Rfam assigns this 580-nucleotide part of an RNA from Candidatus Acidianus copahuensis to the family "Archaeal large subunit ribosomal RNA". Its Rfam clan is "LSU clan". The source organism's lineage runs through Archaea, Thermoproteati, Sulfolobales, Sulfolobaceae and Acidianus.
RNA sequence: CCUCCUACACCGAGAGAAGACCCCGUAGAGCUUCACUGCAGCCUGGCGCUGGUUCUCGGGCGUCUACACGUAGAGUAGGUGGGAGACGUCGAAGCUAUCCUUUUGGGGAUAGUGGAGUCGAAAGUGAAACACCACCUGUGGAUGCUCGAGAACCUUACUUCCGAAAGGGAGAACAACGUCAGGUGGGCAGUUCGGCUGGGGCGGCACUCCCGCGAAAAGAUAACACGGGAGCCCAAAGGUCGGCUCAGGCGGUACAGGACGCCGCCGUAGAGUGCAAGGGCAAAAGUCGGCCUGACAAGUCCCUUCAAAGCACGGGGACUUGGCGCGAAAGCGCGGCCUAGCGAACGCUCAUGCCCCCACGUGUGGGGGCUGGGCAUGUCAGAAAAGUUACCUCGGGGAUAACAGGGUCGUCGCGGGCGAGAGCUCCCAUCGACCCCGCGGUUUGCUUCAUCGAUGUCGGCUCUUCCCACCCUGGGGGUGCAGCUGCCCCCAAGGGUAGGGCUGCCCGCCCGUUAAAGGGGAACGUGAGCUGGGUUUAGACCGUCGCGAGACAGGUCGGACUCUAAGGGUAGGAGGUGUA
Numbered sequence: 001c002c003u004c005c006u007a008c009a010c011c012g013a014g015a016g017a018a019g020a021c022c023c024c025g026u027a028g029a030g031c032u033u034c035a036c037u038g039c040a041g042c043c044u045g046g047c048g049c050u051g052g053u054u055c056u057c058g059g060g061c062g063u064c065u066a067c068a069c070g071u072a073g074a075g076u077a078g079g080u081g082g083g084a085g086a087c088g089u090c091g092a093a094g095c096u097a098u099c100c101u102u103u104u105g106g107g108g109a110u111a112g113u114g115g116a117g118u119c120g121a122a123a124g125u126g127a128a129a130c131a132c133c134a135c136c137u138g139u140g141g142a143u144g145c146u147c148g149a150g151a152a153c154c155u156u157a158c159u160u161c162c163g164a165a166a167g168g169g170a171g172a173a174c175a176a177c178g179u180c181a182g183g184u185g186g187g188c189a190g191u192u193c194g195g196c197u198g199g200g201g202c203g204g205c206a207c208u209c210c211c212g213c214g215a216a217a218a219g220a221u222a223a224c225a226c227g228g229g230a231g232c233c234c235a236a237a238g239g240u241c242g243g244c245u246c247a248g249g250c251g252g253u254a255c256a257g258g259a260c261g262c263c264g265c266c267g268u269a270g271a272g273u274g275c276a277a278g279g280g281c282a283a284a285a286g287u288c289g290g291c292c293u294g295a296c297a298a299g300u301c302c303c304u305u306c307a308a309a310g311c312a313c314g315g316g317g318a319c320u321u322g323g324c325g326c327g328a329a330a331g332c333g334c335g336g337c338c339u340a341g342c343g344a345a346c347g348c349u350c351a352u353g354c355c356c357c358c359a360c361g362u363g364u365g366g367g368g369g370c371u372g373g374g375c376a377u378g379u380c381a382g383a384a385a386a387g388u389u390a391c392c393u394c395g396g397g398g399a400u401a402a403c404a405g406g407g408u409c410g411u412c413g414c415g416g417g418c419g420a421g422a423g424c425u426c427c428c429a430u431c432g433a434c435c436c437c438g439c440g441g442u443u444u445g446c447u448u449c450a451u452c453g454a455u456g457u458c459g460g461c462u463c464u465u466c467c468c469a470c471c472c473u474g475g476g477g478g479u480g481c482a483g484c485u486g487c488c489c490c491c492a493a494g495g496g497u498a499g500g501g502c503u504g505c506c507c508g509c510c511c512g513u514u515a516a517a518g519g520g521g522a523a524c525g526u527g528a529g530c531u532g533g534g535u536u537u538a539g540a541c542c543g544u545c546g547c548g549a550g551a552c553a554g555g556u557c558g559g560a561c562u563c564u565a566a567g568g569g570u571a572g573g574a575g576g577u578g579u580a
Stems, first nucleotide, its partner, number of pairs: 001576008010568002014563002022397004027393002029389005035191004042183007051154018078136005085119003097110005158171004194207001195205003208230005233336002239291006245271002248266006272281002296322009324333001326331001347375005353370001355369004406447003410444001411441007421431002458533001459531004463525001464522005471496002475490005499511004539557004543552003